[Rfam]
RNA sequence: UCCCCGCUUUUCCUCCCUGAGCGGGUGCCUUAAUGUGUGACAGCAAAAAGGCUUCCCACCCCGGCUUUUGGCCGGGGUUUUUUUU
Numbered sequence: 001u002c003c004c005c006g007c008u009u010u011u012c013c014u015c016c017c018u019g020a021g022c023g024g025g026u027g028c029c030u031u032a033a034u035g036u037g038u039g040a041c042a043g044c045a046a047a048a049a050g051g052c053u054u055c056c057c058a059c060c061c062c063g064g065c066u067u068u069u070g071g072c073c074g075g076g077g078u079u080u081u082u083u084u085u
Base pairs, nucleotide, nucleotide: 003025004024005023006022007021008020027052028051029050030049031048058078059077060076061075062074063073064072065071
About this RNA: This 85-nucleotide RNA from Ramlibacter sp. WS9 belongs to the Rfam family "Burkholderia RNA 7 (anti-hemB)". The match comes from Rfam's covariance-model search (67 bits). Gene Ontology terms of the family: protein binding and bacterial biofilm matrix. This RNA motif was identified by computational search in b-proteobacteria Burkholderia. Co-purified with Hfq, expression confirmed by Northern blot. The base pairs follow the family's consensus structure, which is taken from published work.